[Rfam]
The record is a 122-nucleotide sequence from Pseudacidovorax intermedius, which matches "Burkholderia RNA 11" in Rfam.
The family's RNA type in Rfam is small RNA.
A reference for the family is Ramos et al. (2013), "Experimental identification of small non-coding regulatory RNAs in the opportunistic human pathogen Burkholderia cenocepacia J2315", Genomics.
Nucleotides: 122
Base pairs, nucleotide, nucleotide: 010049011048012047014045017041018040021037022036023035024034026032051121052120053119054118055117057115058114060112062110063105067099068098071095072094074092075091076090077089078088
Number, partner (000 for none) and nucleotide at each position: 001000g002000c003000a004000a005000c006000c007000u008000c009000a010049a011048g012047c013000u014045g015000g016000c017041g018040c019000a020000c021037g022036g023035c024034a025000a026032c027000a028000c029000g030000g031000u032026g033000g034024u035023g036022u037021u038000c039000c040018g041017c042000u043000c044000g045014c046000u047012g048011c049010u050000g051121g052120g053119c054118a055117u056000u057115u058114c059000g060112u061000g062110g063105a064000u065000g066000u067099g068098g069000u070000u071095c072094u073000u074092c075091g076090g077089c078088g079000c080000c081000a082000c083000c084000u085000u086000c087000c088078u089077g090076u091075c092074g093000c094072a095071g096000u097000u098068c099067c100000c101000g102000a103000g104000c105063u106000u107000c108000g109000c110062c111000a112060a113000g114058g115057a116000g117055g118054u119053g120052c121051u122000g
Rfam links the family to the GO term protein binding. About the family: Co-purified with Hfq, expression confirmed by Northern blot.